[Rfam]
RNA: c-di-GMP-I riboswitch aptamer
Organism: Bacillus sp. MUM 13
RNA sequence: UAUUUUAUUGGGCAAAUUUUACGAAAGUAAAAGACGCAAAGCCACGGGCCUAAAGCAGUCAUUACUUGUCAUGGCGGCCGGGUUGCCAGA
Numbered sequence: 001u002a003u004u005u006u007a008u009u010g011g012g013c014a015a016a017u018u019u020u021a022c023g024a025a026a027g028u029a030a031a032a033g034a035c036g037c038a039a040a041g042c043c044a045c046g047g048g049c050c051u052a053a054a055g056c057a058g059u060c061a062u063u064a065c066u067u068g069u070c071a072u073g074g075c076g077g078c079c080g081g082g083u084u085g086c087c088a089g090a
Stems, first nucleotide, its partner, number of pairs: 012037002017032006040084004045080003048075003055069004